[Rfam]
RNA sequence: GUUGGGUUAGGUGGUGUUAACCUGUAAGCUAAACUUCUGAGCAACUGAAAGUAGAACGGUAUGAGCUAUAAGAUAGUGAUUUAGGUUUCUACUUAUGUAGAGAGUCGGUCUUAUUCAAGUACUGAGUUAACAUUCGUUGAGGGAUGUAGGUCCCUUGACAAGGUUAUUAACGAAGUGGGCAACGCGUGAGGCUGGUAACAGAGCAGCGAAAACCACUCGCUUAGUACGGUGAUUGAGAUAGCUGGCUUGAGUAAGUGACUAAAUCUGCUUAUAGUAAUAGUUAUCGAACGAAUUUCUU
Numbered sequence: 001g002u003u004g005g006g007u008u009a010g011g012u013g014g015u016g017u018u019a020a021c022c023u024g025u026a027a028g029c030u031a032a033a034c035u036u037c038u039g040a041g042c043a044a045c046u047g048a049a050a051g052u053a054g055a056a057c058g059g060u061a062u063g064a065g066c067u068a069u070a071a072g073a074u075a076g077u078g079a080u081u082u083a084g085g086u087u088u089c090u091a092c093u094u095a096u097g098u099a100g101a102g103a104g105u106c107g108g109u110c111u112u113a114u115u116c117a118a119g120u121a122c123u124g125a126g127u128u129a130a131c132a133u134u135c136g137u138u139g140a141g142g143g144a145u146g147u148a149g150g151u152c153c154c155u156u157g158a159c160a161a162g163g164u165u166a167u168u169a170a171c172g173a174a175g176u177g178g179g180c181a182a183c184g185c186g187u188g189a190g191g192c193u194g195g196u197a198a199c200a201g202a203g204c205a206g207c208g209a210a211a212a213c214c215a216c217u218c219g220c221u222u223a224g225u226a227c228g229g230u231g232a233u234u235g236a237g238a239u240a241g242c243u244g245g246c247u248u249g250a251g252u253a254a255g256u257g258a259c260u261a262a263a264u265c266u267g268c269u270u271a272u273a274g275u276a277a278u279a280g281u282u283a284u285c286g287a288a289c290g291a292a293u294u295u296c297u298u
Stems, first nucleotide, its partner, number of pairs: 001045003004023007028042003047296004052291001054289001057286004061281002065275007076268002078265006088258002092255005098249001102248008110237002113234001115232003119227009128166004133161002136159010174217005185208003192201003
Dot-bracket structure: ((((((((((......)))))))....(((.........)))))).((((.(.(..((((((..(((((((....((((((((....((..(((((.(...((((((((((.(.(((.(((((((((((((.((.((((((((((....)))))))))))).)))).......(((((......(((....(((....)))....)))....))))).)))))))))..))).).))...))))))))).))))).)).)))))).)))))))))....)).))))..).).))))..
The record is a 298-nucleotide RNA from Neocallimastix californiae, which matches "Metazoan signal recognition particle RNA" in Rfam. Pairs were carried over by alignment from the consensus structure, which is taken from published work. The signal recognition particle (SRP) is a universally conserved ribonucleoprotein. It is involved in the co-translational targeting of proteins to membranes. Its Rfam clan is "SRP clan". It scores 153 bits against the family's covariance model.